[Rfam]
RNA sequence: UUCUGAUUGGAUGAUGACUGUCACAUGUCAUAUUCUAAUUGGUCAAUGAAAACAGCAAUGCAUUUCAUCUUUCAUGGAGUUGACAUCCAAUCAGAACAUGACACGUGACAGUCGUCAUCC
Numbered sequence: 001u002u003c004u005g006a007u008u009g010g011a012u013g014a015u016g017a018c019u020g021u022c023a024c025a026u027g028u029c030a031u032a033u034u035c036u037a038a039u040u041g042g043u044c045a046a047u048g049a050a051a052a053c054a055g056c057a058a059u060g061c062a063u064u065u066c067a068u069c070u071u072u073c074a075u076g077g078a079g080u081u082g083a084c085a086u087c088c089a090a091u092c093a094g095a096a097c098a099u100g101a102c103a104c105g106u107g108a109c110a111g112u113c114g115u116c117a118u119c120c
Base pairs, nucleotide, nucleotide: 020109021108022107023106026103029100030099031098033096034095035094036093038091039090040089041088042087
Overview: This 120-nucleotide RNA from Glycine max belongs to the Rfam family "MIR1520 microRNA precursor family". The sequence is in the family's curated seed alignment. NCBI's taxonomy places the organism under Eukaryota, Pentapetalae, fabids, Papilionoideae, Glycine subgen. Soja.